[Rfam]
RNA sequence: GUUUAAUGAUGAUAACAUGCGUGUCAACUGAAUUAAGUGUUCUCUGCAGCGUUCUGUCUCCAGUCAGCGUUUUGCUUACUGGUCUGCAUGGCGCUGCAGUACUCUUAAGCGCAUGAUCAGAUUUGUCUAAAACUGAAAAC
Numbered sequence: 001g002u003u004u005a006a007u008g009a010u011g012a013u014a015a016c017a018u019g020c021g022u023g024u025c026a027a028c029u030g031a032a033u034u035a036a037g038u039g040u041u042c043u044c045u046g047c048a049g050c051g052u053u054c055u056g057u058c059u060c061c062a063g064u065c066a067g068c069g070u071u072u073u074g075c076u077u078a079c080u081g082g083u084c085u086g087c088a089u090g091g092c093g094c095u096g097c098a099g100u101a102c103u104c105u106u107a108a109g110c111g112c113a114u115g116a117u118c119a120g121a122u123u124u125g126u127c128u129a130a131a132a133c134u135g136a137a138a139a140c
Base pairs, nucleotide, nucleotide: 001140002139003138004137044099045098046097047096048095049094050093
RNA: Small nucleolar RNA SNORD10
Organism: Clupea harengus